Description
A member of the RNA family "Group II catalytic intron D1-D4-3" from Allopusillimonas soli, 172 nucleotides long. Its family is annotated with Group II intron splicing in the Gene Ontology. Taxonomically the source falls in Allopusillimonas (Bacteria, Pseudomonadota, Betaproteobacteria, Alcaligenaceae).
RNA sequence: GUGAUGGCGACCGAGCGUGGGGAGGAAGCGUGGAGCAUAAACUGCGAGCCGAUGGACAAGAACCGGAUAGAAGGCGUUGCCAAGCAGGGCGAGUGGGCCAAAAACCACGAAGCUCUCGUGAUCAAGACGAGGUGGCGUAAAUCCGGCGGUUGUGCAGUGAAGGAGUGCGUUC
Numbered sequence: 001g002u003g004a005u006g007g008c009g010a011c012c013g014a015g016c017g018u019g020g021g022g023a024g025g026a027a028g029c030g031u032g033g034a035g036c037a038u039a040a041a042c043u044g045c046g047a048g049c050c051g052a053u054g055g056a057c058a059a060g061a062a063c064c065g066g067a068u069a070g071a072a073g074g075c076g077u078u079g080c081c082a083a084g085c086a087g088g089g090c091g092a093g094u095g096g097g098c099c100a101a102a103a104a105c106c107a108c109g110a111a112g113c114u115c116u117c118g119u120g121a122u123c124a125a126g127a128c129g130a131g132g133u134g135g136c137g138u139a140a141a142u143c144c145g146g147c148g149g150u151u152g153u154g155c156a157g158u159g160a161a162g163g164a165g166u167g168c169g170u171u172c
Stems, first nucleotide, its partner, number of pairs: 001016002006011001028172001030170003036163001041158006047151005063146006074138003078134004084128001087115004093108004